[Rfam]
RNA sequence: CUGCUCACAAAGGGGAGUCCAUAUGGGCUGAGAUUGAGUGUUACUCUCUAAACCCUUCGUACCUGUUUCGACCAUUCGAACGUAGGAAUUGUGACGAGUUGAAGU
Numbered sequence: 001c002u003g004c005u006c007a008c009a010a011a012g013g014g015g016a017g018u019c020c021a022u023a024u025g026g027g028c029u030g031a032g033a034u035u036g037a038g039u040g041u042u043a044c045u046c047u048c049u050a051a052a053c054c055c056u057u058c059g060u061a062c063c064u065g066u067u068u069c070g071a072c073c074a075u076u077c078g079a080a081c082g083u084a085g086g087a088a089u090u091g092u093g094a095c096g097a098g099u100u101g102a103a104g105u
Stems, first nucleotide, its partner, number of pairs: 006093005011056004017028004036048003062086004067080004
The record is a 105-nucleotide sequence from Tetragenococcus halophilus, which matches "TPP riboswitch aptamer (THI element)" in Rfam. Rfam describes the family as follows. Vitamin B(1) in its active form thiamin pyrophosphate (TPP) is an essential coenzyme that is synthesised by coupling of pyrimidine and thiazole moieties in bacteria.